[Rfam]
RNA sequence: AGGCUGUAUGUGAGAGUUGGAGGAAAUUAAUCCAGGUCACUUCACUCCGCUUAGCAAACGGGUUUAAUUUCCUCCAAUAUCUCACCUCCAGUUU
Numbered sequence: 001a002g003g004c005u006g007u008a009u010g011u012g013a014g015a016g017u018u019g020g021a022g023g024a025a026a027u028u029a030a031u032c033c034a035g036g037u038c039a040c041u042u043c044a045c046u047c048c049g050c051u052u053a054g055c056a057a058a059c060g061g062g063u064u065u066a067a068u069u070u071c072c073u074c075c076a077a078u079a080u081c082u083c084a085c086c087u088c089c090a091g092u093u094u
Stems, first nucleotide, its partner, number of pairs: 004091003008087001011084004016078006023071008032062002
A member of the RNA family "MIR2275 microRNA precursor family" from Pyrus ussuriensis x Pyrus communis, 94 nucleotides long. NCBI's taxonomy places the organism under Eukaryota, Streptophytina, eudicotyledons, rosids, Pyrus. Rfam 15.1 lists 785 matches to the family in 111 species.